[Rfam]
About this RNA:
The record is a 118-nucleotide RNA from Rosa chinensis, which matches "MIR403 microRNA precursor family" in Rfam. The organism belongs to Rosa, within Eukaryota. It scores 85 bits against the family's covariance model.

RNA sequence: ACGCAUCUCCAGUUUGUGUGUGAAUCAAACCCCAUCCAAUCCUGGCCGUCCGUCUUCAUGACGUCACUGCCGGUCCCUCCAAUGGUGUUAGAUUCACGCACAAACUCGCGAUCCGUCU
Number, nucleotide and partner (000 for none) at each position: 001a116002c115003g114004c000005a112006u111007c110008u000009c000010c000011a106012g105013u104014u103015u102016g101017u100018g099019u098020g097021u096022g095023a094024a093025u092026c091027a000028a089029a088030c087031c000032c085033c084034a000035u000036c000037c000038a000039a000040u000041c000042c000043u000044g075045g000046c073047c000048g000049u000050c000051c000052g000053u000054c000055u000056u000057c000058a000059u000060g000061a000062c000063g000064u000065c000066a000067c000068u000069g000070c000071c000072g000073g046074u000075c044076c000077c000078u000079c000080c000081a000082a000083u000084g033085g032086u000087g030088u029089u028090a000091g026092a025093u024094u023095c022096a021097c020098g019099c018100a017101c016102a015103a014104a013105c012106u011107c000108g000109c000110g007111a006112u005113c000114c003115g002116u001117c000118u000